[Rfam]
RNA sequence: UGAGAGAACUCAGGAGAAGGAACUCGGCAAAUUGACACCGUAACUUCGGAAGAAGGUGUGCCUUGAUAAGGUGUAGAGACUUGCUCUCGAAGCCGUAAGAGGUUGCAGAGAAUCGGUGGCUGCGACUGUUUAACAAAAACACAGCACUCUGCUAAGACGAUGAGUCGACGUAUAGGGUGUGACGCCUGCCCGGUGCCGGAAGGUUAAAUGAUGGGGUGCAAGCUCUUGAUUGAAGCCCCGGUAAACGGCGGCCGUAACUAUAACGGUCCUAAGGUAGCGAAAUUCCUUGUCGGGUAAGUUCCGACCCGCACGAAUGGCGUAACGAUGGCCACACUGUCUCCUCCUGAGACUCA
Numbered sequence: 001u002g003a004g005a006g007a008a009c010u011c012a013g014g015a016g017a018a019g020g021a022a023c024u025c026g027g028c029a030a031a032u033u034g035a036c037a038c039c040g041u042a043a044c045u046u047c048g049g050a051a052g053a054a055g056g057u058g059u060g061c062c063u064u065g066a067u068a069a070g071g072u073g074u075a076g077a078g079a080c081u082u083g084c085u086c087u088c089g090a091a092g093c094c095g096u097a098a099g100a101g102g103u104u105g106c107a108g109a110g111a112a113u114c115g116g117u118g119g120c121u122g123c124g125a126c127u128g129u130u131u132a133a134c135a136a137a138a139a140c141a142c143a144g145c146a147c148u149c150u151g152c153u154a155a156g157a158c159g160a161u162g163a164g165u166c167g168a169c170g171u172a173u174a175g176g177g178u179g180u181g182a183c184g185c186c187u188g189c190c191c192g193g194u195g196c197c198g199g200a201a202g203g204u205u206a207a208a209u210g211a212u213g214g215g216g217u218g219c220a221a222g223c224u225c226u227u228g229a230u231u232g233a234a235g236c237c238c239c240g241g242u243a244a245a246c247g248g249c250g251g252c253c254g255u256a257a258c259u260a261u262a263a264c265g266g267u268c269c270u271a272a273g274g275u276a277g278c279g280a281a282a283u284u285c286c287u288u289g290u291c292g293g294g295u296a297a298g299u300u301c302c303g304a305c306c307c308g309c310a311c312g313a314a315u316g317g318c319g320u321a322a323c324g325a326u327g328g329c330c331a332c333a334c335u336g337u338c339u340c341c342u343c344c345u346g347a348g349a350c351u352c353a
Stems, first nucleotide, its partner, number of pairs: 001353004009348008018339003035059005044049001060103005074090001076088004104108001116332007123324002127141003144180008152170001156166003183319004188249003193246002195242005202237003208231001213226005250268006269273001279306001289305006
Background: A member of the RNA family "Bacterial large subunit ribosomal RNA" from Betaproteobacteria bacterium UKL13-2, 353 nucleotides of a longer RNA. Its family is annotated with ribosome and structural constituent of ribosome in the Gene Ontology. The organism belongs to Betaproteobacteria, within Bacteria.